[Rfam]
RNA sequence: GCACUGUAUUUCGAACCUUUAAAGGUACCAACCGAGUGAAGACACCACGGUGGUAAAACAAUACGGGCACCCAGUCAAAAUAAACGUUGAAC
Dot-bracket structure: .....(((((....((((....))))(((..(((.((.[[...))..))).))).....))))).(((.....)))..........]]....
RNA: SAM-I/IV (S-adenosyl methionine) riboswitch aptamer
Organism: Bizionia paragorgiae